[Rfam]
RNA: GP20-a RNA
RNA sequence: UUCCCUCUUAGCGUGGAGGUUUAACUACGCUCGUUCCCCAUAUCGGUGUGGGCGCACCGGAUUUAUAAAUCAAAGUCCUUUAGGGAACGGAAAGGAAC
Numbered sequence: 001u002u003c004c005c006u007c008u009u010a011g012c013g014u015g016g017a018g019g020u021u022u023a024a025c026u027a028c029g030c031u032c033g034u035u036c037c038c039c040a041u042a043u044c045g046g047u048g049u050g051g052g053c054g055c056a057c058c059g060g061a062u063u064u065a066u067a068a069a070u071c072a073a074a075g076u077c078c079u080u081u082a083g084g085g086a087a088c089g090g091a092a093a094g095g096a097a098c
Stems, first nucleotide, its partner, number of pairs: 005018004010031004034087005043060005